[Rfam]
RNA sequence: CGGUUAAAGAGUGCGUAGUCGGGUUUUUUGCCAGCAAUAAAGGUGCGGUCUUCAACUGUGCAUUGUGCUGGUACUUAAAUCUAGGGACCGGAGAAGGGCAAUGAUAUCAACAGCGAGGGGUGAAAACUGAUGACCUGUAGAGGAGCGACUGAGGCGAAAGCGGUUGUCCGGGACGGGUUCGACGAUCAAGCGCGUGAGCAGGAGGAUCGAAGGCGAUUAGAGACCGUCGUAGUUCCUGCAGUAAACGAUGCCAACGGGAUUGCAAGCUAUGUGAUUCAAGGGAAACCGAGUGUAUGGGCUCCGGGGAUAGUACGGGCGCAAGCCAAAAACUUGAAGAAAU
Numbered sequence: 001c002g003g004u005u006a007a008a009g010a011g012u013g014c015g016u017a018g019u020c021g022g023g024u025u026u027u028u029u030g031c032c033a034g035c036a037a038u039a040a041a042g043g044u045g046c047g048g049u050c051u052u053c054a055a056c057u058g059u060g061c062a063u064u065g066u067g068c069u070g071g072u073a074c075u076u077a078a079a080u081c082u083a084g085g086g087a088c089c090g091g092a093g094a095a096g097g098g099c100a101a102u103g104a105u106a107u108c109a110a111c112a113g114c115g116a117g118g119g120g121u122g123a124a125a126a127c128u129g130a131u132g133a134c135c136u137g138u139a140g141a142g143g144a145g146c147g148a149c150u151g152a153g154g155c156g157a158a159a160g161c162g163g164u165u166g167u168c169c170g171g172g173a174c175g176g177g178u179u180c181g182a183c184g185a186u187c188a189a190g191c192g193c194g195u196g197a198g199c200a201g202g203a204g205g206a207u208c209g210a211a212g213g214c215g216a217u218u219a220g221a222g223a224c225c226g227u228c229g230u231a232g233u234u235c236c237u238g239c240a241g242u243a244a245a246c247g248a249u250g251c252c253a254a255c256g257g258g259a260u261u262g263c264a265a266g267c268u269a270u271g272u273g274a275u276u277c278a279a280g281g282g283a284a285a286c287c288g289a290g291u292g293u294a295u296g297g298g299c300u301c302c303g304g305g306g307a308u309a310g311u312a313c314g315g316g317c318g319c320a321a322g323c324c325a326a327a328a329a330c331u332u333g334a335a336g337a338a339a340u
Base pairs, nucleotide, nucleotide: 001303002302003301011193012192013191014190018186019185020184085180086179087178088176089175090174096169097168098167099166100165101164102163103146107142108140110138111137112136113135117128118127154161155160198239199238200237201236202235203234208232212228213227214226215225250299251298252297254291255290257277258276259275260274261273262272263271264270280287281286305332306331315324316323317322
RNA: Microsporidia small subunit ribosomal RNA, nucleotides 438 to 777
Organism: Conglomerata obtusa